Rfam assigns this 108-nucleotide RNA sequence to the family "c-di-GMP-II-GAG riboswitch aptamer". Its Rfam clan is "c-di-GMP_II riboswitch clan". Gene Ontology terms of the family: cyclic-di-GMP binding and regulation of gene expression. The base pairs follow the family's consensus structure, which is taken from published work. For this family Rfam cites "Bioinformatic analysis of riboswitch structures uncovers variant classes with altered ligand specificity" (Weinberg et al., Proc Natl Acad Sci U S A, 2017).
RNA sequence: CGUACGUGAGGACGCGAGGAUCCUCGGACCGGGAGACCGGUCGCCGCGGGGCGGAGCACCGCCCCGACGGUCCGAGGGGAGCGAGCGGCGAGACCGACCUCAGAACCG
Numbered sequence: 001c002g003u004a005c006g007u008g009a010g011g012a013c014g015c016g017a018g019g020a021u022c023c024u025c026g027g028a029c030c031g032g033g034a035g036a037c038c039g040g041u042c043g044c045c046g047c048g049g050g051g052c053g054g055a056g057c058a059c060c061g062c063c064c065c066g067a068c069g070g071u072c073c074g075a076g077g078g079g080a081g082c083g084a085g086c087g088g089c090g091a092g093a094c095c096g097a098c099c100u101c102a103g104a105a106c107c108g
Base pairs, nucleotide, nucleotide: 001108002107007102008101009100010099011098013083014082015081022077023076024075025074026073027072028071029070039095040094041091042090043089044088045087